[Rfam]
RNA sequence: CAGUGUUACACCUCUUUUAGAAUUUGUCUAGCAGGCUUUCUGUUUUUGCUGGAAAGCUCCC
Numbered sequence: 001c002a003g004u005g006u007u008a009c010a011c012c013u014c015u016u017u018u019a020g021a022a023u024u025u026g027u028c029u030a031g032c033a034g035g036c037u038u039u040c041u042g043u044u045u046u047u048g049c050u051g052g053a054a055a056g057c058u059c060c061c
Stems, first nucleotide, its partner, number of pairs: 034058008042049002